[Rfam]
RNA sequence: GUAACGUUUCUUGCUCAAAUGAGUAUUCCAACCACAGUUGUUUCCUUAUAGUACUAUCUGCUAGUCUUGUGGUUGCUGGUGCUCCUGUUCUUUGAGAUGCUCAUUUGAGCAAGCAAUGUUAA
Number, nucleotide and partner (000 for none) at each position: 001g000002u000003a000004a119005c118006g117007u116008u115009u000010c113011u112012u111013g110014c109015u108016c107017a106018a105019a104020u103021g102022a101023g100024u099025a098026u097027u096028c000029c094030a093031a000032c000033c000034a000035c000036a000037g000038u000039u000040g000041u000042u000043u000044c000045c000046u000047u000048a000049u000050a000051g000052u000053a000054c000055u000056a000057u000058c000059u000060g000061c000062u000063a000064g000065u000066c000067u000068u000069g000070u000071g000072g000073u000074u000075g000076c000077u000078g000079g000080u000081g000082c000083u000084c000085c000086u000087g000088u000089u000090c000091u000092u000093u030094g029095a000096g027097a026098u025099g024100c023101u022102c021103a020104u019105u018106u017107g016108a015109g014110c013111a012112a011113g010114c000115a008116a007117u006118g005119u004120u000121a000122a000
A member of the RNA family "MIR828 microRNA precursor family" from Jatropha curcas, 122 nucleotides long. Pairs were carried over by alignment from the consensus structure, which was predicted with RNAalifold. The match comes from Rfam's covariance-model search (96 bits).